[Rfam]
RNA sequence: UUCAUGAUUGUAAACAUCCCCGACUGGAAGCUGUGCUAUACGUAAGGCUUUCAGUUGGAUGUUUGCUGUCAUCGU
Numbered sequence: 001u002u003c004a005u006g007a008u009u010g011u012a013a014a015c016a017u018c019c020c021c022g023a024c025u026g027g028a029a030g031c032u033g034u035g036c037u038a039u040a041c042g043u044a045a046g047g048c049u050u051u052c053a054g055u056u057g058g059a060u061g062u063u064u065g066c067u068g069u070c071a072u073c074g075u
Stems, first nucleotide, its partner, number of pairs: 002074001004072003008068001010066010023055010

This 75-nucleotide RNA from Triplophysa rosa belongs to the Rfam family "mir-30 microRNA precursor family". This family consists of the mammalian microRNA (miRNA) precursor mir-30a. Animal miRNAs are transcribed as ~70nt precursors and subsequently processed by the Dicer enzyme to give a ~22nt product. In this case the mature sequence comes from both the 3' (miR-30) and 5' (mir-97-6) arms of the precursor. The extents of the hairpin precursors are not generally known and are estimated based on hairpin prediction. The products are thought to have regulatory roles through complementarity to mRNA. The involvement of Dicer in miRNA processing suggests a relationship with the phenomenon of RNA interference. miRNAs are numbered based on the sequence of the mature RNA. On this family, see Lagos-Quintana et al., Science 2001: "Identification of novel genes coding for small expressed RNAs". Its family is annotated with RISC complex and gene silencing by miRNA in the Gene Ontology. Lineage of the source: Eukaryota > Chordata > Craniata > Cypriniformes > Triplophysa.